The family of this 559-nucleotide part of an RNA from Candidatus Carsonella ruddii is "Bacterial small subunit ribosomal RNA". Taxonomically the source falls in Candidatus Carsonella (Bacteria, Pseudomonadati, Pseudomonadota, Oceanospirillales). The family has 99 seed sequences and 42,628 matches in Rfam 15.1.

RNA sequence: UUUCUUAUGAGUUUGAUCAUAGCUCAGAUUGAACGCUAGCGACAAGCCUAACACAUGCAAGUUGUGCGAAUUAUUUUAUUAAAAAAAGUAAUUAGCAGCGAACGGGUGAGUAAUGUAUAAGAAUCUACCUUUUAGUAUUUUGAAAAGUAUAUAGAAAUGUAUAGUAAUUCAAUAUAUAUCCUAAUGGAUAAAGUAUGAGAUAGUCAUACGCUAAUAGAAGAGCUUAUAUCGAAUUAGUUAGUUGUUAAAGUAAAGGUUUAACAAGACCAUGAUUCGUAGUUGAUCUUAGAGGAUGAACAACCACAUUGGGACUGAGACACGGCCCAAACUUUUAAGGAAGGCAGCAGUGGGGAAUAUUGGACAAUGAGCGAAAGCUUGAUCCAGCUAUGUCGCGUGUGUGAAGAAGGCCUUAGGGUUGUAAAUCACUUUCAGCAAAGUAAGAAGAAAAAAUUAAAUAAUAUUUUAUUUUUUUUGACGUUUUUUGUAAAAGAAGCACCGGCUAACUUCGUGCCAGCAGCCGCGGUAAUACGAGGGGUGCAAGCGUUAAUCGGAAUUAUUG
Numbered sequence: 001u002u003u004c005u006u007a008u009g010a011g012u013u014u015g016a017u018c019a020u021a022g023c024u025c026a027g028a029u030u031g032a033a034c035g036c037u038a039g040c041g042a043c044a045a046g047c048c049u050a051a052c053a054c055a056u057g058c059a060a061g062u063u064g065u066g067c068g069a070a071u072u073a074u075u076u077u078a079u080u081a082a083a084a085a086a087a088g089u090a091a092u093u094a095g096c097a098g099c100g101a102a103c104g105g106g107u108g109a110g111u112a113a114u115g116u117a118u119a120a121g122a123a124u125c126u127a128c129c130u131u132u133u134a135g136u137a138u139u140u141u142g143a144a145a146a147g148u149a150u151a152u153a154g155a156a157a158u159g160u161a162u163a164g165u166a167a168u169u170c171a172a173u174a175u176a177u178a179u180c181c182u183a184a185u186g187g188a189u190a191a192a193g194u195a196u197g198a199g200a201u202a203g204u205c206a207u208a209c210g211c212u213a214a215u216a217g218a219a220g221a222g223c224u225u226a227u228a229u230c231g232a233a234u235u236a237g238u239u240a241g242u243u244g245u246u247a248a249a250g251u252a253a254a255g256g257u258u259u260a261a262c263a264a265g266a267c268c269a270u271g272a273u274u275c276g277u278a279g280u281u282g283a284u285c286u287u288a289g290a291g292g293a294u295g296a297a298c299a300a301c302c303a304c305a306u307u308g309g310g311a312c313u314g315a316g317a318c319a320c321g322g323c324c325c326a327a328a329c330u331u332u333u334a335a336g337g338a339a340g341g342c343a344g345c346a347g348u349g350g351g352g353a354a355u356a357u358u359g360g361a362c363a364a365u366g367a368g369c370g371a372a373a374g375c376u377u378g379a380u381c382c383a384g385c386u387a388u389g390u391c392g393c394g395u396g397u398g399u400g401a402a403g404a405a406g407g408c409c410u411u412a413g414g415g416u417u418g419u420a421a422a423u424c425a426c427u428u429u430c431a432g433c434a435a436a437g438u439a440a441g442a443a444g445a446a447a448a449a450a451u452u453a454a455a456u457a458a459u460a461u462u463u464u465a466u467u468u469u470u471u472u473u474g475a476c477g478u479u480u481u482u483u484g485u486a487a488a489a490g491a492a493g494c495a496c497c498g499g500c501u502a503a504c505u506u507c508g509u510g511c512c513a514g515c516a517g518c519c520g521c522g523g524u525a526a527u528a529c530g531a532g533g534g535g536u537g538c539a540a541g542c543g544u545u546a547a548u549c550g551g552a553a554u555u556a557u558u559g
Stems, first nucleotide, its partner, number of pairs: 009025005027549004032545006039393006045386002047351001052349003056346003061099003066096002069092001072090006106304003115229007124221002129217002132214004137173002141171002148163006179188003193209006230276003237267003242264008279301004283294004306327005329340004357383001359382003365378005396426003406417004430490001432485005441476001447470003493538005504533005514521002